[Rfam]
RNA sequence: CAGAUACAGUGAUGAUAACAUAGUUCAGCAGAUUAUCUCGUGAUGAACUAUGUUCUGUCUUUCGCUCCUAUCUGAUGUAUCUA
Numbered sequence: 001c002a003g004a005u006a007c008a009g010u011g012a013u014g015a016u017a018a019c020a021u022a023g024u025u026c027a028g029c030a031g032a033u034u035a036u037c038u039c040g041u042g043a044u045g046a047a048c049u050a051u052g053u054u055c056u057g058u059c060u061u062u063c064g065c066u067c068c069u070a071u072c073u074g075a076u077g078u079a080u081c082u083a
Base pairs, nucleotide, nucleotide: 004080005079006078007077008076
Notes
Rfam assigns this 83-nucleotide RNA sequence from Gallus gallus to the family "Small nucleolar RNA snR60/Z15/Z230/Z193/J17". The family is grouped with related families in Rfam's "SNORD77 clan". Rfam 15.1 lists 3,592 matches to the family in 1,855 species. NCBI's taxonomy places the organism under Eukaryota, Coelurosauria, Aves, Galloanserae, Gallus. The match comes from Rfam's covariance-model search (63 bits). Pairs were carried over by alignment from the consensus structure.